[Rfam]
RNA sequence: UAGUUGGUGAAAGUCCAACCUGAGUAAGUGCCAAGACGCUCAGUAGCUGACAGGCAACUGGUAGAGAAAUCCUAAGGUUGAAGCCCUGUGACAAAGUAAUUCAUUCGUGAGUGC
Numbered sequence: 001u002a003g004u005u006g007g008u009g010a011a012a013g014u015c016c017a018a019c020c021u022g023a024g025u026a027a028g029u030g031c032c033a034a035g036a037c038g039c040u041c042a043g044u045a046g047c048u049g050a051c052a053g054g055c056a057a058c059u060g061g062u063a064g065a066g067a068a069a070u071c072c073u074a075a076g077g078u079u080g081a082a083g084c085c086c087u088g089u090g091a092c093a094a095a096g097u098a099a100u101u102c103a104u105u106c107g108u109g110a111g112u113g114c
Base pairs, nucleotide, nucleotide: 020043021042022041023040024039050089051088052087053086054085055080056079057078058077059076064071065070096114097113099112100111101110102109